[Rfam]
RNA sequence: AGAUGUCUGGCCAUAAUGCAUUGUCCCAUGUUUAGUAAAAAAAAAAAAAAAAAAAUUAAAAAAACCACAGGACCUGGACACCUUGCAGUCAUUCAGUCGACCAAGAACUCCUCUGUAUACCAAAGCAUUCUAAAGAGAAAUGUGCAGACACAAUAUUUCAUGGAAGUUUGUGUGGGCAAAACACAUGAUGGAGCCAGAGAUGCGCGGACUUCUCAGAGUCGGGUUGUUUGGGAAUGCAGCCCAAAGAGGGUGGUAAACUCCAUCUAAGGCUAAAUACCGGCACGAGACCGAUAGCGAACAAGUACCGUAAGGGAAAGUUGAAAAGAACUUUGAAGAGAGAGUUCAACAGGGCGUGAAACCGUUAAGAGGUAAA
Numbered sequence: 001a002g003a004u005g006u007c008u009g010g011c012c013a014u015a016a017u018g019c020a021u022u023g024u025c026c027c028a029u030g031u032u033u034a035g036u037a038a039a040a041a042a043a044a045a046a047a048a049a050a051a052a053a054a055a056u057u058a059a060a061a062a063a064a065c066c067a068c069a070g071g072a073c074c075u076g077g078a079c080a081c082c083u084u085g086c087a088g089u090c091a092u093u094c095a096g097u098c099g100a101c102c103a104a105g106a107a108c109u110c111c112u113c114u115g116u117a118u119a120c121c122a123a124a125g126c127a128u129u130c131u132a133a134a135g136a137g138a139a140a141u142g143u144g145c146a147g148a149c150a151c152a153a154u155a156u157u158u159c160a161u162g163g164a165a166g167u168u169u170g171u172g173u174g175g176g177c178a179a180a181a182c183a184c185a186u187g188a189u190g191g192a193g194c195c196a197g198a199g200a201u202g203c204g205c206g207g208a209c210u211u212c213u214c215a216g217a218g219u220c221g222g223g224u225u226g227u228u229u230g231g232g233a234a235u236g237c238a239g240c241c242c243a244a245a246g247a248g249g250g251u252g253g254u255a256a257a258c259u260c261c262a263u264c265u266a267a268g269g270c271u272a273a274a275u276a277c278c279g280g281c282a283c284g285a286g287a288c289c290g291a292u293a294g295c296g297a298a299c300a301a302g303u304a305c306c307g308u309a310a311g312g313g314a315a316a317g318u319u320g321a322a323a324a325g326a327a328c329u330u331u332g333a334a335g336a337g338a339g340a341g342u343u344c345a346a347c348a349g350g351g352c353g354u355g356a357a358a359c360c361g362u363u364a365a366g367a368g369g370u371a372a373a
Stems, first nucleotide, its partner, number of pairs: 002212002005209004011191004016186002021179006030149001032148001152156001160168001221242007248265005305312002328339004